[Rfam]
RNA sequence: GGAUGAAGUAGAGGUGCGGGAGUCAAAAGUACUUUCAGGGAGAGUGGUACCAAUGAUCUGAAGGGAAAGGGUCAACCGCCGAAGUGGGAAGAACUACCGGCGUUUUUCUUGCUGGUCUUAUACUGAAUAAGUUUAAGACUGUCACCAAAAAUUAUUGGUGGAGAGCUAUCUCGUCU
Numbered sequence: 001g002g003a004u005g006a007a008g009u010a011g012a013g014g015u016g017c018g019g020g021a022g023u024c025a026a027a028a029g030u031a032c033u034u035u036c037a038g039g040g041a042g043a044g045u046g047g048u049a050c051c052a053a054u055g056a057u058c059u060g061a062a063g064g065g066a067a068a069g070g071g072u073c074a075a076c077c078g079c080c081g082a083a084g085u086g087g088g089a090a091g092a093a094c095u096a097c098c099g100g101c102g103u104u105u106u107u108c109u110u111g112c113u114g115g116u117c118u119u120a121u122a123c124u125g126a127a128u129a130a131g132u133u134u135a136a137g138a139c140u141g142u143c144a145c146c147a148a149a150a151a152u153u154a155u156u157g158g159u160g161g162a163g164a165g166c167u168a169u170c171u172c173g174u175c176u
Stems, first nucleotide, its partner, number of pairs: 006171001008169004016079004022073001024071001032064008083113012114140007122132003142161007
A member of the RNA family "Lysine riboswitch aptamer" from Methylomusa anaerophila, 176 nucleotides long. Riboswitches are metabolite binding domains within certain messenger RNAs that serve as precision sensors for their corresponding targets. Gene Ontology term of the family: lysine biosynthetic process. The source organism's lineage runs through Bacteria, Bacillota, Selenomonadales, Sporomusaceae and Methylomusa. A search with the family's covariance model found it, with a score of 128 bits. Pairs were carried over by alignment from the consensus structure, which is taken from published work.